A member of the RNA family "BsrG" from Paenibacillus solanacearum, 252 nucleotides long.
The source organism's lineage runs through Bacteria, Bacillati, Bacillota, Paenibacillaceae and Paenibacillus.
bsrE, bsrG and bsrH pair through intermolecular interactions with antisense sRNAs.
Pairs were carried over by alignment from the consensus structure, which was predicted with WAR.
Gene Ontology terms of the family: autolysis and toxin activity.
The family's RNA type in Rfam is small RNA.
On this family, see Jahn and Brantl, Nucleic Acids Res 2013: "One antitoxin--two functions: SR4 controls toxin mRNA decay and translation".
Rfam 15.1 lists 614 matches to the family in 343 species.

[Rfam]
RNA sequence: CACAAUAGAAUGGCCUUAUGGUCGGUCGGCUAACCUCUCGGAAGGGAGGUGAUGCCUGUGGAGGUAUUUCAAGCGCUGCAAUUGAUGUUCCUGUUCGGAAUGUUUAUUCUAGCUUUGCUUACGUACCUUAACAAAAAGAAAUAGACCGUCCUCUCACAAAGGUUAACGGUCUAUUUCUUUGGCAAUAACCCUUUGAAGCCAACCGCCCUUAAAUGCGGCUAUUGUGUAAGGAGUCGUGUUGGAGCACGACUC
Number, nucleotide and partner (000 for none) at each position: 001c226002a225003c224004a223005a222006u000007a220008g219009a000010a000011u201012g200013g199014c198015c000016u197017u196018a000019u000020g151021g150022u000023c000024g146025g000026u144027c000028g000029g000030c000031u052032a000033a050034c000035c048036u047037c046038u045039c044040g000041g000042a000043a000044g039045g038046g037047a036048g035049g000050u033051g000052a031053u000054g000055c000056c000057u000058g000059u000060g122061g000062a120063g119064g118065u117066a116067u000068u000069u000070c000071a000072a000073g088074c087075g086076c000077u000078g000079c000080a000081a000082u000083u000084g000085a000086u075087g074088u073089u000090c000091c000092u000093g000094u000095u000096c000097g114098g113099a000100a000101u000102g000103u000104u000105u000106a000107u000108u000109c000110u000111a000112g000113c098114u097115u000116u066117g065118c064119u063120u062121a000122c060123g000124u000125a000126c000127c000128u000129u000130a000131a000132c000133a000134a000135a000136a000137a000138g000139a000140a000141a000142u000143a000144g026145a000146c024147c000148g000149u000150c021151c020152u000153c000154u000155c000156a000157c000158a000159a000160a178161g000162g000163u000164u000165a000166a000167c000168g000169g000170u000171c000172u000173a000174u000175u000176u000177c000178u160179u000180u000181g000182g000183c000184a000185a000186u000187a000188a000189c000190c000191c000192u000193u000194u000195g000196a017197a016198g014199c013200c012201a011202a000203c218204c217205g216206c215207c000208c000209u000210u000211a000212a000213a000214u000215g206216c205217g204218g203219c008220u007221a000222u005223u004224g003225u002226g001227u000228a000229a000230g000231g252232a251233g250234u249235c248236g247237u246238g245239u244240u000241g000242g000243a000244g239245c238246a237247c236248g235249a234250c233251u232252c231